[Rfam]
RNA: L4-Archaeoglobi ribosomal protein leades
RNA sequence: CUGAUGGGCGCGUUCGGGUCAAUUGCGGCCUGCAACACCCGAUCUCGCUCCCCGUGCCGUCAAAAAUGUCGGUACAGGAGGGAGAGCGCGUAACCGUCAG
Numbered sequence: 001c002u003g004a005u006g007g008g009c010g011c012g013u014u015c016g017g018g019u020c021a022a023u024u025g026c027g028g029c030c031u032g033c034a035a036c037a038c039c040c041g042a043u044c045u046c047g048c049u050c051c052c053c054g055u056g057c058c059g060u061c062a063a064a065a066a067u068g069u070c071g072g073u074a075c076a077g078g079a080g081g082g083a084g085a086g087c088g089c090g091u092a093a094c095c096g097u098c099a100g
Stems, first nucleotide, its partner, number of pairs: 001100005008091006015041004023035005043085004051078002054075006